[Rfam]
Nucleotides: 058
Base pairs, nucleotide, nucleotide: 009050010049011048012047013046014045015044026043027042028041029040030039031038
Number, partner (000 for none) and nucleotide at each position: 001000g002000u003000a004000c005000c006000a007000c008000g009050c010049c011048u012047u013046u014045u015044a016000c017000u018000c019000g020000g021000a022000u023000c024000g025000u026043c027042c028041g029040g030039c031038a032000c033000g034000u035000u036000c037000c038031u039030g040029c041028c042027g043026g044015u045014g046013g047012a048011a049010g050009g051000a052000u053000g054000c055000a056000c057000u058000g